RNA sequence: AAGACUAUACUUUCAGGGAUCAUUUCUAUAGUGCAUAACUUGAGAAAUGUGUUUCUAAAGUGAUUGGUCUCGCUAACCACGAUGAAGAGUUAGUGAUGCUUCACCCUGAGCGCGAAGCGUACUUCAGUCAGUGAGUUUCUCACAAGACUGUCGUUAUUGAUGACCGUUCACUGCUUACCUAGGUUAGCAGCGAUGGGUGAAGUAUGUGCCGAGUGGU
Numbered sequence: 001a002a003g004a005c006u007a008u009a010c011u012u013u014c015a016g017g018g019a020u021c022a023u024u025u026c027u028a029u030a031g032u033g034c035a036u037a038a039c040u041u042g043a044g045a046a047a048u049g050u051g052u053u054u055c056u057a058a059a060g061u062g063a064u065u066g067g068u069c070u071c072g073c074u075a076a077c078c079a080c081g082a083u084g085a086a087g088a089g090u091u092a093g094u095g096a097u098g099c100u101u102c103a104c105c106c107u108g109a110g111c112g113c114g115a116a117g118c119g120u121a122c123u124u125c126a127g128u129c130a131g132u133g134a135g136u137u138u139c140u141c142a143c144a145a146g147a148c149u150g151u152c153g154u155u156a157u158u159g160a161u162g163a164c165c166g167u168u169c170a171c172u173g174c175u176u177a178c179c180u181a182g183g184u185u186a187g188c189a190g191c192g193a194u195g196g197g198u199g200a201a202g203u204a205u206g207u208g209c210c211g212a213g214u215g216g217u
Stems, first nucleotide, its partner, number of pairs: 001041003006035001008033004015027004051064001054063002076217005096205011110167003121154002125150004131143005171190005177184002
Notes:
This 217-nucleotide RNA sequence from Oryzias latipes belongs to the Rfam family "Small nucleolar RNA U3". From the family's description: Small nucleolar RNAs (snoRNAs) are involved in the processing and modification of rRNA in the nucleolus. There are two main classes of snoRNAs: the box C/D class, and the box H/ACA class. U3 snoRNA is a member of the box C/D class. On this family, see Zwieb, Nucleic Acids Res 1997: "The uRNA database". It is annotated as a C/D-box small nucleolar RNA. Pairs were carried over by alignment from the consensus structure, which is taken from published work. The family is grouped with related families in Rfam's "U3 clan". Its family is annotated with nucleolus and RNA processing in the Gene Ontology. The sequence is in the family's curated seed alignment. NCBI's taxonomy places the organism under Eukaryota, Deuterostomia, Euteleostomi, Euacanthomorphacea, Oryzias.